[Rfam]
RNA sequence: UUGUUUUUAAUGUUGCAUUGGAAUAUAAAUUCAGCAAGCAGAAAUCUAAAUUCUGCCUCAAUAUUGCUAACAGAUAUUUCCUGCAAAAUCUA
Dot-bracket structure: ............(((((..((((((((.(((...........))).))...((((...............)))))))))).)))))......

Rfam assigns this 92-nucleotide RNA from Podarcis lilfordi to the family "rpsL sRNA". The base pairs follow the family's consensus structure, which is taken from published work. The organism belongs to Podarcis, within Eukaryota. It scores 42 bits against the family's covariance model. It is annotated as a small RNA.